Shown here is a 173-nucleotide sequence from Paraliobacillus quinghaiensis, a member of the family "glmS glucosamine-6-phosphate activated ribozyme aptamer". On this family, see Winkler et al., Nature 2004: "Control of gene expression by a natural metabolite-responsive ribozyme". From the family's description: This entry contains a glucosamine-6-phosphate activated ribozyme that is found in the mRNA for GlmS. GlmS is an enzyme that uses fructose-6-phosphate and glutamine to generate glucosamine-6-phosphate. The organism belongs to Paraliobacillus, within Bacteria. The base pairs follow the family's consensus structure, which is taken from published work.
[Rfam]
RNA sequence: CUAGUAGUAAAAGCGCCAGGGCUAUUUUUCGAGCGGUGAAAAAUAGUUGACGAGGUGGAGGUUUAUCGAAUUAGUUCGGCGGAUGCCUCCCGGUUGCACACAUCUCCAACCGAAAAAUUUUUAUUCGAAAACAAAGAGGCGACUUUUUGAACAAGAAUAAAAACCUGAUGAUG
Dot-bracket structure: ...................((((((((.(.........).))))))))........(((((....((((......))))......)))))((((((..........)))))).....(((((((.......(((((((....))))))).......)))))))..........